RNA: Ribosomal protein L10 leader
RNA sequence: AAAAUAAUAGCGCUCAUUCCAAAGACAGCAGGUGAACUGCGGUUCCCAACGGCUCUGUGCCGCCUGCCGAGGAUGCAUUGUUCCAUUUUAUAGUAUGGAUUUAUUGUGCCCUCAUGUCCUUUGGAUGUGAGGGCACUUAUUCUAAACGG
Number, nucleotide and partner (000 for none) at each position: 001a000002a000003a000004a000005u000006a000007a000008u000009a000010g000011c000012g000013c000014u000015c000016a000017u000018u000019c000020c000021a000022a000023a000024g000025a000026c000027a000028g067029c066030a065031g064032g063033u062034g045035a044036a043037c000038u000039g000040c000041g000042g000043u036044u035045c034046c000047c000048a000049a000050c000051g000052g000053c000054u000055c000056u000057g000058u000059g000060c000061c000062g033063c032064c031065u030066g029067c028068c000069g000070a000071g000072g000073a000074u000075g000076c000077a000078u000079u000080g000081u000082u000083c000084c000085a000086u000087u000088u000089u000090a000091u000092a000093g000094u000095a000096u000097g000098g000099a000100u000101u000102u000103a000104u000105u000106g000107u000108g134109c133110c132111c131112u130113c129114a128115u127116g126117u125118c000119c000120u000121u000122u000123g000124g000125a117126u116127g115128u114129g113130a112131g111132g110133g109134c108135a000136c000137u000138u000139a000140u000141u000142c000143u000144a000145a000146a000147c000148g000149g000